[Rfam]
RNA: Group II catalytic intron D1-D4-3
RNA sequence: UCCAUCGUGAGGUGGAAUCUGAAGGAAGUCGGAUGGCAAAUCUCUGGUCUGACGAACAGAAAUCACAUCAGGCUACGGUUAAGGAUAAGGUUGCACGACAAACCAAAGUCCAAUAACUACUCGGAAUUAACUGUGGUAAAUGUGGCAUAUAAAUGCUAACAUA
Numbered sequence: 001u002c003c004a005u006c007g008u009g010a011g012g013u014g015g016a017a018u019c020u021g022a023a024g025g026a027a028g029u030c031g032g033a034u035g036g037c038a039a040a041u042c043u044c045u046g047g048u049c050u051g052a053c054g055a056a057c058a059g060a061a062a063u064c065a066c067a068u069c070a071g072g073c074u075a076c077g078g079u080u081a082a083g084g085a086u087a088a089g090g091u092u093g094c095a096c097g098a099c100a101a102a103c104c105a106a107a108g109u110c111c112a113a114u115a116a117c118u119a120c121u122c123g124g125a126a127u128u129a130a131c132u133g134u135g136g137u138a139a140a141u142g143u144g145g146c147a148u149a150u151a152a153a154u155g156c157u158a159a160c161a162u163a
Base pairs, nucleotide, nucleotide: 001016002015003014004013005012006011041159045155046154047150048149050147051146063145064144065143066142067141072137073136074135076133077132078131079130080129081128082127083111084110085109086108089104090103091102092101